RNA sequence: GGAGCUAUCGUCUAUCGGUUAGGACAUCAGAUUUUCAUUCUGAGAAGCGGGGUUCGACUCCCCGUAGCUCCU
Numbered sequence: 001g002g003a004g005c006u007a008u009c010g011u012c013u014a015u016c017g018g019u020u021a022g023g024a025c026a027u028c029a030g031a032u033u034u035u036c037a038u039u040c041u042g043a044g045a046a047g048c049g050g051g052g053u054u055c056g057a058c059u060c061c062c063c064g065u066a067g068c069u070c071c072u
Base pairs, nucleotide, nucleotide: 001071002070003069004068005067006066007065010025011024012023013022027043028042029041030040031039048064049063050062051061052060
A member of the RNA family "tRNA" from Pseudorhodoferax sp. Leaf274, 72 nucleotides long. Its family is annotated with triplet codon-amino acid adaptor activity in the Gene Ontology. It scores 58 bits against the family's covariance model. The source organism's lineage runs through Bacteria, Betaproteobacteria, Burkholderiales, Comamonadaceae and Pseudorhodoferax. The family's consensus secondary structure is taken from published work. For this family Rfam cites "tRNAscan-SE: a program for improved detection of transfer RNA genes in genomic sequence" (Lowe and Eddy, Nucleic Acids Res, 1997). By type it is a transfer RNA.